A member of the RNA family "mir-8517 microRNA precursor family" from Plutella xylostella, 108 nucleotides long. A search with the family's covariance model found it, with a score of 98 bits.
RNA sequence: UUACUGGACGCUUUAGCUAACGAACUGUUUUGUCACUCUCUGACAGAUAACAAUUUCUUCUUAGACAGAGAGUGACAAAACAGUUCAAUAACUAAAGCGUCCAGUAAC
Dot-bracket structure: ((((((....((((((.((..(((((((((((((..............((.(...).))....))))))..........)))))))..)).))))))....)))))).